[Rfam]
RNA: mir-276 microRNA precursor family
RNA sequence: GUUGGUAUCGCAAGCUCGGUGUGGAGUUUCUUACUGUGUUUUUGAACCAGAGGUAGGAACUUCAUACCAUGCUCGUGUUUACGAACU
Dot-bracket structure: ........((..(((..(((((.((((((((.......................)))))))).)))))..)))..))..........